[Rfam]
RNA sequence: UCUGAGACAACAUGCUUCCUUAUAUCCCCAUAUGAAUCUGGGUUAGAUAUGGAAUGUAAGGAAGUGUGUGGUUUCGGG
Numbered sequence: 001u002c003u004g005a006g007a008c009a010a011c012a013u014g015c016u017u018c019c020u021u022a023u024a025u026c027c028c029c030a031u032a033u034g035a036a037u038c039u040g041g042g043u044u045a046g047a048u049a050u051g052g053a054a055u056g057u058a059a060g061g062a063a064g065u066g067u068g069u070g071g072u073u074u075c076g077g078g
Stems, first nucleotide, its partner, number of pairs: 007072002010069016028052005
RNA: mir-1 microRNA precursor family